[Rfam]
RNA sequence: GUAGUUGGAUCUCCGACUUUUUGAAAUGUUUCAAAUUC
Numbered sequence: 001g002u003a004g005u006u007g008g009a010u011c012u013c014c015g016a017c018u019u020u021u022u023g024a025a026a027u028g029u030u031u032c033a034a035a036u037u038c
Base pairs, nucleotide, nucleotide: 003018004017005016006015007014008013020035021034022033023032024031025030
RNA: Plastid psbT antisense RNA
Organism: Oryza rufipogon